[Rfam]
RNA sequence: UACAUCCAUACUGUAAAUCCAAUCACAUGAAUUUAAGAUGAUAAGAAAUUCUCCAUUGGUAACAAAUGGUUAUCCAUUAAGCGGAGGAAAUUUUAU
Numbered sequence: 001u002a003c004a005u006c007c008a009u010a011c012u013g014u015a016a017a018u019c020c021a022a023u024c025a026c027a028u029g030a031a032u033u034u035a036a037g038a039u040g041a042u043a044a045g046a047a048a049u050u051c052u053c054c055a056u057u058g059g060u061a062a063c064a065a066a067u068g069g070u071u072a073u074c075c076a077u078u079a080a081g082c083g084g085a086g087g088a089a090a091u092u093u094u095a096u
Stems, first nucleotide, its partner, number of pairs: 005022001009021001051086004055077002058074006
RNA: Plastid-rps12 3UTR RNA